The family of this 374-nucleotide part of an RNA from Fusobacterium animalis is "Bacterial large subunit ribosomal RNA". Its family is annotated with structural constituent of ribosome and ribosome in the Gene Ontology.
RNA sequence: GAGAAAGGGGGCGAGAAUCCCCCUCGCCGGAAGACCAAGGUUUUCAGGGUAAAGCUUGUCUUCCCUGAGUAAGCCGGGACCUAAGCCCAGGCUAUAAUGCGUAGGCGAAUGGAAAACAGAUUAAUAUUUCUGUGCCAGUCAUUUAUUGUGAUGGAGGGACGCAGAAGGGUAUGUGCGCGGACGAUUGGUUGUGUCCGUAGAAGUAUGUAGGGUGACUUAGUAGGUAAAUCCAUUAAGUUAUAUCUGAGGUAUGAUAUACAGUCGUAAGAUGAAUGUACAAAUCCCACGCUGCCAAGAAAAACUUCUAACGUUAAUAUUUGACUGCCCGUACUGUAAACCGACACAGGUGGUCAGGAUGAGAAAUCUAAGGCGGA
Numbered sequence: 001g002a003g004a005a006a007g008g009g010g011g012c013g014a015g016a017a018u019c020c021c022c023c024u025c026g027c028c029g030g031a032a033g034a035c036c037a038a039g040g041u042u043u044u045c046a047g048g049g050u051a052a053a054g055c056u057u058g059u060c061u062u063c064c065c066u067g068a069g070u071a072a073g074c075c076g077g078g079a080c081c082u083a084a085g086c087c088c089a090g091g092c093u094a095u096a097a098u099g100c101g102u103a104g105g106c107g108a109a110u111g112g113a114a115a116a117c118a119g120a121u122u123a124a125u126a127u128u129u130c131u132g133u134g135c136c137a138g139u140c141a142u143u144u145a146u147u148g149u150g151a152u153g154g155a156g157g158g159a160c161g162c163a164g165a166a167g168g169g170u171a172u173g174u175g176c177g178c179g180g181a182c183g184a185u186u187g188g189u190u191g192u193g194u195c196c197g198u199a200g201a202a203g204u205a206u207g208u209a210g211g212g213u214g215a216c217u218u219a220g221u222a223g224g225u226a227a228a229u230c231c232a233u234u235a236a237g238u239u240a241u242a243u244c245u246g247a248g249g250u251a252u253g254a255u256a257u258a259c260a261g262u263c264g265u266a267a268g269a270u271g272a273a274u275g276u277a278c279a280a281a282u283c284c285c286a287c288g289c290u291g292c293c294a295a296g297a298a299a300a301a302c303u304u305c306u307a308a309c310g311u312u313a314a315u316a317u318u319u320g321a322c323u324g325c326c327c328g329u330a331c332u333g334u335a336a337a338c339c340g341a342c343a344c345a346g347g348u349g350g351u352c353a354g355g356a357u358g359a360g361a362a363a364u365c366u367a368a369g370g371c372g373g374a
Base pairs, nucleotide, nucleotide: 006024007023008022009021010020011019025372026371027370028369033352034351035350036349039332040331044068045067046066047065048064049063053061054060075328076327077326078325080112081111085106086105087104089102091100092099116133117132118131119130120129136324137323138322139321140320141319144316145315146314148309149308153305154304155303156302161292162291163290164289167285168284169283172279173278174277175276176275177198178197179196180195181194182193199257203252204251205250206249210245211244212243215238216237217236218235219234220233221232223231224230261270262269263268338347339346354366355365356364357363